A member of the RNA family "Bacterial RNase P class A" from Firmicutes bacterium CAG:552, 328 nucleotides long. On this family, see Frank and Pace, Annu Rev Biochem 1998: "Ribonuclease P: unity and diversity in a tRNA processing ribozyme". Its family is annotated with dimeric ribonuclease P complex, ribonuclease P activity and tRNA processing in the Gene Ontology. The family's RNA type in Rfam is ribozyme. The match comes from Rfam's covariance-model search (262 bits).

RNA sequence: CGAGAUAAGCAGACGAUCGCGUGAUUUCACGAGGAAAGUCCGAGCACCGCAGAACAGAAUGCCGGCUAACUACCGGUGAAGGCGACUUCAAGGAAAGUGCAACAGAAAUAAACCGCUGCUUUUAUGCGGUAAGGGUGGAAAGGCGAGGUAAGAGCUCACCGGCGCAGCGGCAACGAGGCGCGCUCUGUAAACCCCAUUCGGUGCAAGACGGUAAGGGAAUAUAAGGUUGUUCGCCCUCCCUUCAGUGUCGCUCGAGCGUAUCGGCAACGAUUCGCCUAGAUAGAUGAUCGUCAAAUACAGAACUCGGCUUACAGCUUAUUCUCGGGAU
Numbered sequence: 001c002g003a004g005a006u007a008a009g010c011a012g013a014c015g016a017u018c019g020c021g022u023g024a025u026u027u028c029a030c031g032a033g034g035a036a037a038g039u040c041c042g043a044g045c046a047c048c049g050c051a052g053a054a055c056a057g058a059a060u061g062c063c064g065g066c067u068a069a070c071u072a073c074c075g076g077u078g079a080a081g082g083c084g085a086c087u088u089c090a091a092g093g094a095a096a097g098u099g100c101a102a103c104a105g106a107a108a109u110a111a112a113c114c115g116c117u118g119c120u121u122u123u124a125u126g127c128g129g130u131a132a133g134g135g136u137g138g139a140a141a142g143g144c145g146a147g148g149u150a151a152g153a154g155c156u157c158a159c160c161g162g163c164g165c166a167g168c169g170g171c172a173a174c175g176a177g178g179c180g181c182g183c184u185c186u187g188u189a190a191a192c193c194c195c196a197u198u199c200g201g202u203g204c205a206a207g208a209c210g211g212u213a214a215g216g217g218a219a220u221a222u223a224a225g226g227u228u229g230u231u232c233g234c235c236c237u238c239c240c241u242u243c244a245g246u247g248u249c250g251c252u253c254g255a256g257c258g259u260a261u262c263g264g265c266a267a268c269g270a271u272u273c274g275c276c277u278a279g280a281u282a283g284a285u286g287a288u289c290g291u292c293a294a295a296u297a298c299a300g301a302a303c304u305c306g307g308c309u310u311a312c313a314g315c316u317u318a319u320u321c322u323c324g325g326g327a328u
Stems, first nucleotide, its partner, number of pairs: 001324004005319006012292007020031004036310003040307005045203004052232004057199005062076004077091001078089004092194002097192002099188003113134002115130005142160002145157003161183001162181004168175002207249004212244001214242004223237001225235003256275003260271004